[Rfam]
RNA sequence: CUCCCCGAAAUGUAUUUAGGUACAGCGUCAGAUGUUCAGCAUCGGAGGUAGAGCACUGAAUGGGCUAUGGGGCCCCACAGGCUUACUGAUCCCAAUCAAACUCCGAAUGCCGAUGCUCUAGAGUCUGGCAGUGAGACCAUGGGGGAUGAGCUUCAUGGUCGAGAGGGAAACAGCCCAGACCGCCAGCUAAGGUCCCUAAGUUCUGACUAAGUGGAAAACGAUGUGAAACCGCAAAAACAGCCAGGAGGUUGGCUCAGAAGCAGCCACCCUUUAAAGAGUGCGUAAUAGCUCACUGGUCGAGUGGUUUUGCGCGGACAAUGUAACGGGGCUAAGUCAGACACCGAAGCUGCGGAUGUGGAGCUGGAUUUAUCCAGUGUCCAUAUGGUAGGGGAGCGUCGGGCAUGCAUUGAAGCGGUCAGCGUAAGCGGCCGUGGAGCGUGUCCGAGUGAGAAU
Numbered sequence: 001c002u003c004c005c006c007g008a009a010a011u012g013u014a015u016u017u018a019g020g021u022a023c024a025g026c027g028u029c030a031g032a033u034g035u036u037c038a039g040c041a042u043c044g045g046a047g048g049u050a051g052a053g054c055a056c057u058g059a060a061u062g063g064g065c066u067a068u069g070g071g072g073c074c075c076c077a078c079a080g081g082c083u084u085a086c087u088g089a090u091c092c093c094a095a096u097c098a099a100a101c102u103c104c105g106a107a108u109g110c111c112g113a114u115g116c117u118c119u120a121g122a123g124u125c126u127g128g129c130a131g132u133g134a135g136a137c138c139a140u141g142g143g144g145g146a147u148g149a150g151c152u153u154c155a156u157g158g159u160c161g162a163g164a165g166g167g168a169a170a171c172a173g174c175c176c177a178g179a180c181c182g183c184c185a186g187c188u189a190a191g192g193u194c195c196c197u198a199a200g201u202u203c204u205g206a207c208u209a210a211g212u213g214g215a216a217a218a219c220g221a222u223g224u225g226a227a228a229c230c231g232c233a234a235a236a237a238c239a240g241c242c243a244g245g246a247g248g249u250u251g252g253c254u255c256a257g258a259a260g261c262a263g264c265c266a267c268c269c270u271u272u273a274a275a276g277a278g279u280g281c282g283u284a285a286u287a288g289c290u291c292a293c294u295g296g297u298c299g300a301g302u303g304g305u306u307u308u309g310c311g312c313g314g315a316c317a318a319u320g321u322a323a324c325g326g327g328g329c330u331a332a333g334u335c336a337g338a339c340a341c342c343g344a345a346g347c348u349g350c351g352g353a354u355g356u357g358g359a360g361c362u363g364g365a366u367u368u369a370u371c372c373a374g375u376g377u378c379c380a381u382a383u384g385g386u387a388g389g390g391g392a393g394c395g396u397c398g399g400g401c402a403u404g405c406a407u408u409g410a411a412g413c414g415g416u417c418a419g420c421g422u423a424a425g426c427g428g429c430c431g432u433g434g435a436g437c438g439u440g441u442c443c444g445a446g447u448g449a450g451a452a453u
Stems, first nucleotide, its partner, number of pairs: 001393006011024005026131001027129007036122001038117008051104001052102002057098003061094004069086001070084005135160010165176003180352004185348003191342003200339001202338006219313002223310010240297005246270003251265003271275001276291001280289002353383007394448001396445010412432005419426002

Overview:
The family of this 453-nucleotide part of an RNA from Ferrimicrobium acidiphilum is "Bacterial large subunit ribosomal RNA". A search with the family's covariance model found it, with a score of 2892 bits.